[Rfam]
RNA sequence: CUCGGACUCGGCGAUGGAUCCCGCCUGGGCCGUUCCCCGGUCCGAACCGCCCUCCUCCGGGCUGAUGGUUCCUGACCGAUG
Numbered sequence: 001c002u003c004g005g006a007c008u009c010g011g012c013g014a015u016g017g018a019u020c021c022c023g024c025c026u027g028g029g030c031c032g033u034u035c036c037c038c039g040g041u042c043c044g045a046a047c048c049g050c051c052c053u054c055c056u057c058c059g060g061g062c063u064g065a066u067g068g069u070u071c072c073u074g075a076c077c078g079a080u081g
Stems, first nucleotide, its partner, number of pairs: 010025004016072003020068002049062004

The family of this 81-nucleotide RNA from Streptomyces sp. SAT1 is "Fluoride riboswitch aptamer (crcB RNA motif)". The family's consensus secondary structure is taken from published work. NCBI's taxonomy places the organism under Bacteria, Bacillati, Actinomycetota, Actinomycetes, Streptomyces.